Bacterial large subunit ribosomal RNA: a 586-nucleotide part of an RNA from Desulfotignum phosphitoxidans.

RNA sequence: CCCGCGAAAAGACGGAAAGACCCCGGCACCUUUACUACAGCUUGACAUUGGAUUUUGGGACAUGAUGUGCAGGAUAGGUGGGAGACUUGGAAGCAGGCACGCCAGUGUUUGUGGAGUCACCCUUGAAAUACCACCCUUUAUGUUUCAGUGUUCUAACUUAGGUCCGUAAUCCGGAUCGAGGACAGUGUCUGGUGGGUAGUUUGACUGGGGCGGUCGCCUCCCAAAGAGUAACGGAGGCGCGCGAAGGUUCCCUCAGGCUGAUUGGAAACCAGCCGCAGAGUGCAAAGGCAUAAGGGAGCUUGACUGCGAGAGAGACAUUUCGAGCAGGUACGAAAGUAGGUCUUAGUGAUCCGGCGGUUCUGAAUGGAAGGGCCGUCGCUCAACGGAUAAAAGGUACGCCGGGGAUAACAGGCUUAUCGCCCCCAAGAGUUCACAUCGACGGGGCGGUUUGGCACCUCGAUGUCGGCUCAUCACAUCCUGGGGCUGGAGCAGGUCCCAAGGGUUCGGCUGUUCGCCGAUUAAAGUGGUACGUGAGCUGGGUUUAAAACGUCGUGAGACAGUUUGGUCCCUAUCUUUCGUGGGCGCA
Numbered sequence: 001c002c003c004g005c006g007a008a009a010a011g012a013c014g015g016a017a018a019g020a021c022c023c024c025g026g027c028a029c030c031u032u033u034a035c036u037a038c039a040g041c042u043u044g045a046c047a048u049u050g051g052a053u054u055u056u057g058g059g060a061c062a063u064g065a066u067g068u069g070c071a072g073g074a075u076a077g078g079u080g081g082g083a084g085a086c087u088u089g090g091a092a093g094c095a096g097g098c099a100c101g102c103c104a105g106u107g108u109u110u111g112u113g114g115a116g117u118c119a120c121c122c123u124u125g126a127a128a129u130a131c132c133a134c135c136c137u138u139u140a141u142g143u144u145u146c147a148g149u150g151u152u153c154u155a156a157c158u159u160a161g162g163u164c165c166g167u168a169a170u171c172c173g174g175a176u177c178g179a180g181g182a183c184a185g186u187g188u189c190u191g192g193u194g195g196g197u198a199g200u201u202u203g204a205c206u207g208g209g210g211c212g213g214u215c216g217c218c219u220c221c222c223a224a225a226g227a228g229u230a231a232c233g234g235a236g237g238c239g240c241g242c243g244a245a246g247g248u249u250c251c252c253u254c255a256g257g258c259u260g261a262u263u264g265g266a267a268a269c270c271a272g273c274c275g276c277a278g279a280g281u282g283c284a285a286a287g288g289c290a291u292a293a294g295g296g297a298g299c300u301u302g303a304c305u306g307c308g309a310g311a312g313a314g315a316c317a318u319u320u321c322g323a324g325c326a327g328g329u330a331c332g333a334a335a336g337u338a339g340g341u342c343u344u345a346g347u348g349a350u351c352c353g354g355c356g357g358u359u360c361u362g363a364a365u366g367g368a369a370g371g372g373c374c375g376u377c378g379c380u381c382a383a384c385g386g387a388u389a390a391a392a393g394g395u396a397c398g399c400c401g402g403g404g405a406u407a408a409c410a411g412g413c414u415u416a417u418c419g420c421c422c423c424c425a426a427g428a429g430u431u432c433a434c435a436u437c438g439a440c441g442g443g444g445c446g447g448u449u450u451g452g453c454a455c456c457u458c459g460a461u462g463u464c465g466g467c468u469c470a471u472c473a474c475a476u477c478c479u480g481g482g483g484c485u486g487g488a489g490c491a492g493g494u495c496c497c498a499a500g501g502g503u504u505c506g507g508c509u510g511u512u513c514g515c516c517g518a519u520u521a522a523a524g525u526g527g528u529a530c531g532u533g534a535g536c537u538g539g540g541u542u543u544a545a546a547a548c549g550u551c552g553u554g555a556g557a558c559a560g561u562u563u564g565g566u567c568c569c570u571a572u573c574u575u576u577c578g579u580g581g582g583c584g585c586a
Base pairs, nucleotide, nucleotide: 001582002581003580004579005578006577007576008575010574011573012572014569015568022403023402024401025400026399027398028395029394030393031392032391034200035199036198037197041192042191044189045188046187047186050153051152052151053150055148056147057146058145059144060143061142062141063140064139065138067136077135078134079133080132081131084118085117086116093112094111095110096109097108098107099106100105157180158179159178161177162176163175164174165173166172203215204214205213206212216238217237218236219235220234221233239384241341242340247299248298249297250296251295252294253279254278256274257273258272259271260270280289281288304327305326306325307324310321311320312319329338330337331336352378353377354376355375356374357373358372360371361370412453413452414451416450417447418446419445420444421443422442423441427437428436464539465537466536467535468534469531470528471527472526473525474524477502478501480497481496482495483494484493485492504518505517506516507515508514545563546562547561548560549558550557551556